This 129-nucleotide RNA sequence from Saitozyma sp. JCM 24511 belongs to the Rfam family "tRNA". By type it is a transfer RNA. The match comes from Rfam's covariance-model search (51 bits). Taxonomically the source falls in Saitozyma (Eukaryota, Fungi, Agaricomycotina, Trimorphomycetaceae). The family's consensus secondary structure is taken from published work.
[Rfam]
RNA sequence: GGUCGCGUGGCGAAGUGGUUUAUCGCGCUGGUCUUACAAGGCAGAUUCCCCCGCCGUUUGGUCCUGGACUGGCGAGAGGAAGCUACCCCGACACACCAGAUGUCCUCGGUUCAAACCCGAGCGCGAUCA
Number, nucleotide and partner (000 for none) at each position: 001g128002g127003u126004c125005g124006c123007g122008u000009g000010g026011c025012g024013a023014a000015g000016u000017g000018g000019u000020u000021u000022a000023u013024c012025g011026c010027g000028c099029u098030g097031g096032u095033c000034u000035u000036a000037c000038a000039a000040g000041g000042c000043a000044g000045a000046u000047u000048c000049c000050c000051c000052c000053g000054c000055c000056g000057u000058u000059u000060g000061g000062u000063c000064c000065u000066g000067g000068a000069c000070u000071g000072g000073c000074g000075a000076g000077a000078g000079g000080a000081a000082g000083c000084u000085a000086c000087c000088c000089c000090g000091a000092c000093a000094c000095a032096c031097c030098a029099g028100a000101u000102g000103u000104c000105c121106u120107c119108g118109g117110u000111u000112c000113a000114a000115a000116c000117c109118c108119g107120a106121g105122c007123g006124c005125g004126a003127u002128c001129a000